[Rfam]
RNA sequence: AACAUAAAUGACGGGAGCUUGUGUAACAGGCUGAGAGUAAGCUAAAAGCUUAGACCGAACCGGAUCUGGAUAAUACCAGCGUCGGGAAGAUUUAUAAAUUUCAAU
Numbered sequence: 001a002a003c004a005u006a007a008a009u010g011a012c013g014g015g016a017g018c019u020u021g022u023g024u025a026a027c028a029g030g031c032u033g034a035g036a037g038u039a040a041g042c043u044a045a046a047a048g049c050u051u052a053g054a055c056c057g058a059a060c061c062g063g064a065u066c067u068g069g070a071u072a073a074u075a076c077c078a079g080c081g082u083c084g085g086g087a088a089g090a091u092u093u094a095u096a097a098a099u100u101u102c103a104a105u
Stems, first nucleotide, its partner, number of pairs: 006093004012057003017031005038052005060085004066079004
A member of the RNA family "TPP riboswitch aptamer (THI element)" from Campylobacter jejuni, 105 nucleotides long. Rfam describes the family as follows. Vitamin B(1) in its active form thiamin pyrophosphate (TPP) is an essential coenzyme that is synthesised by coupling of pyrimidine and thiazole moieties in bacteria. NCBI's taxonomy places the organism under Bacteria, Pseudomonadati, Campylobacteraceae, Campylobacter jejuni, Campylobacter jejuni subsp. jejuni.